A member of the RNA family "Bacterial RNase P class A" from Amycolatopsis acidicola, 385 nucleotides long.
The organism belongs to Amycolatopsis, within Bacteria.
From the family's description: Ribonuclease P (RNase P) is a ubiquitous endoribonuclease, found in archaea, bacteria and eukarya as well as chloroplasts and mitochondria. Its best characterised activity is the generation of mature 5'-ends of tRNAs by cleaving the 5'-leader elements of precursor-tRNAs.
It is annotated as a ribozyme.
Pairs were carried over by alignment from the consensus structure, which is taken from published work.
It scores 303 bits against the family's covariance model.
RNA sequence: CGAGUCGGCCGGGCGGCCGCGAGGGUUCACGCUCUCGAGGAAAGUCCGGACUCCACAGGGCAGGGUGGUUGCUAACGGCAACCCGGGGUGACCCGCGGGACAGUGCCACAGAAAACAGACCGCCCCGGCCGCGAGGCCGGGGUAAGGGUGAAACGGUGGUGUAAGAGACCACCAGCAUCCCGGGUGACCGGGGUGGCUGGGUAAACCCCACCCGGAGCAAGGCCAAGAGGGCGCCGUGAGGUGCCUGCGCAGGCGUUCGAGGGUUGCCCGCCCGAGCCUGCGGGUAGGCCGCUCGAGCCUGUCGGCAACGGCAGGCCUAGAUGGAUGGCCGCCGCCGCGGUUUCGUGCCGCGGUACAGGAUCCGGCUUACAGGCCGGCUCGUCCG
Numbered sequence: 001c002g003a004g005u006c007g008g009c010c011g012g013g014c015g016g017c018c019g020c021g022a023g024g025g026u027u028c029a030c031g032c033u034c035u036c037g038a039g040g041a042a043a044g045u046c047c048g049g050a051c052u053c054c055a056c057a058g059g060g061c062a063g064g065g066u067g068g069u070u071g072c073u074a075a076c077g078g079c080a081a082c083c084c085g086g087g088g089u090g091a092c093c094c095g096c097g098g099g100a101c102a103g104u105g106c107c108a109c110a111g112a113a114a115a116c117a118g119a120c121c122g123c124c125c126c127g128g129c130c131g132c133g134a135g136g137c138c139g140g141g142g143u144a145a146g147g148g149u150g151a152a153a154c155g156g157u158g159g160u161g162u163a164a165g166a167g168a169c170c171a172c173c174a175g176c177a178u179c180c181c182g183g184g185u186g187a188c189c190g191g192g193g194u195g196g197c198u199g200g201g202u203a204a205a206c207c208c209c210a211c212c213c214g215g216a217g218c219a220a221g222g223c224c225a226a227g228a229g230g231g232c233g234c235c236g237u238g239a240g241g242u243g244c245c246u247g248c249g250c251a252g253g254c255g256u257u258c259g260a261g262g263g264u265u266g267c268c269c270g271c272c273c274g275a276g277c278c279u280g281c282g283g284g285u286a287g288g289c290c291g292c293u294c295g296a297g298c299c300u301g302u303c304g305g306c307a308a309c310g311g312c313a314g315g316c317c318u319a320g321a322u323g324g325a326u327g328g329c330c331g332c333c334g335c336c337g338c339g340g341u342u343u344c345g346u347g348c349c350g351c352g353g354u355a356c357a358g359g360a361u362c363c364g365g366c367u368u369a370c371a372g373g374c375c376g377g378c379u380c381g382u383c384c385g
Stems, first nucleotide, its partner, number of pairs: 001381010011370001012333007020037007042368003046365005051217004058269004063213005068082005083097001084095004098208002103206002105202003120147002122143009155173006175197001176195008221290004249281006261273004297316008